[Rfam]
RNA: GA-cis RNA
Nucleotides: 089
Stems, first nucleotide, its partner, number of pairs: 008047003012043002016032006056079003060075002064071002
Number, partner (000 for none) and nucleotide at each position: 001000g002000u003000g004000a005000g006000g007000a008047g009046g010045c011000a012043c013042c014000g015000u016032u017031a018030u019029g020028g021027a022000c023000g024000a025000a026000g027021u028020c029019c030018a031017u032016a033000a034000u035000u036000a037000a038000a039000a040000u041000c042013g043012g044000c045010g046009c047008c048000g049000a050000c051000g052000a053000c054000g055000u056079g057078c058077c059000g060075c061074c062000g063000a064071g065070c066000g067000g068000a069000g070065g071064c072000g073000a074061g075060g076000g077058g078057g079056c080000g081000a082000a083000a084000c085000a086000u087000u088000u089000g